This 181-nucleotide RNA from Agrilus planipennis belongs to the Rfam family "R2 RNA element". Pairs were carried over by alignment from the consensus structure, which is taken from published work. Rfam 15.1 lists 3,698 matches to the family in 74 species. Lineage of the source: Eukaryota > Pancrustacea > Insecta > Eumetabola > Agrilus. The match comes from Rfam's covariance-model search (43 bits).
RNA sequence: UCGUAUUAUGUACAUACGACUAUAUUAGUUUCGGCUGAAGAGGACCUUAAUUGGUCCUAAAACGGCCUGAGGUAGAGGGGUUUUAGUCGGUAGGUCCGAGGACACCUUCCUCGGGAAUCCGACACUACCCAGUCGUGCAGACGGCUGGGUGUCUUUUGAAGAUUUCCCCUCUUCCACGAAA
Numbered sequence: 001u002c003g004u005a006u007u008a009u010g011u012a013c014a015u016a017c018g019a020c021u022a023u024a025u026u027a028g029u030u031u032c033g034g035c036u037g038a039a040g041a042g043g044a045c046c047u048u049a050a051u052u053g054g055u056c057c058u059a060a061a062a063c064g065g066c067c068u069g070a071g072g073u074a075g076a077g078g079g080g081u082u083u084u085a086g087u088c089g090g091u092a093g094g095u096c097c098g099a100g101g102a103c104a105c106c107u108u109c110c111u112c113g114g115g116a117a118u119c120c121g122a123c124a125c126u127a128c129c130c131a132g133u134c135g136u137g138c139a140g141a142c143g144g145c146u147g148g149g150u151g152u153c154u155u156u157u158g159a160a161g162a163u164u165u166c167c168c169c170u171c172u173u174c175c176a177c178g179a180a181a
Stems, first nucleotide, its partner, number of pairs: 001041001051180002054177002071175002074172002077168003086123005095115008125151001127150005